[Rfam]
RNA sequence: AUAACUUAAAAAAUUGAAUCUCGUAUAAUAAUGGAGAUAUGGUCCAUAAGUUUCUACCAGACUGCCGUAAAUGGUCUGACUACGGGUGAUUUGUCAAUAUGU
Numbered sequence: 001a002u003a004a005c006u007u008a009a010a011a012a013a014u015u016g017a018a019u020c021u022c023g024u025a026u027a028a029u030a031a032u033g034g035a036g037a038u039a040u041g042g043u044c045c046a047u048a049a050g051u052u053u054c055u056a057c058c059a060g061a062c063u064g065c066c067g068u069a070a071a072u073g074g075u076c077u078g079a080c081u082a083c084g085g086g087u088g089a090u091u092u093g094u095c096a097a098u099a100u101g102u
Stems, first nucleotide, its partner, number of pairs: 020086006029049001031047005058078007
Shown here is a 102-nucleotide RNA from Serpentinicella alkaliphila, a member of the family "Purine riboswitch aptamer". It scores 87 bits against the family's covariance model. Taxonomically the source falls in Serpentinicella (Bacteria, Clostridia, Peptostreptococcales, Natronincolaceae). Rfam links the family to the GO term purine nucleobase biosynthetic process.